[Rfam]
RNA: SAM (S-adenosyl methionine) riboswitch aptamer
RNA sequence: GGUCAUGAGUGCCAGCGCCAAGCCCCGGCUCGCUGGCCGGCAACCCUCCCACCGCGGCGGGGUGCCCCGGGUGAGGACCUGGCCCGUCGACGCCACCCGGCGCUCGGGCAAGCGCGGAGA
Numbered sequence: 001g002g003u004c005a006u007g008a009g010u011g012c013c014a015g016c017g018c019c020a021a022g023c024c025c026c027g028g029c030u031c032g033c034u035g036g037c038c039g040g041c042a043a044c045c046c047u048c049c050c051a052c053c054g055c056g057g058c059g060g061g062g063u064g065c066c067c068c069g070g071g072u073g074a075g076g077a078c079c080u081g082g083c084c085c086g087u088c089g090a091c092g093c094c095a096c097c098c099g100g101c102g103c104u105c106g107g108g109c110a111a112g113c114g115c116g117g118a119g120a
Stems, first nucleotide, its partner, number of pairs: 001079004009038001011037006021030002039066003044062003048057002082109005091102004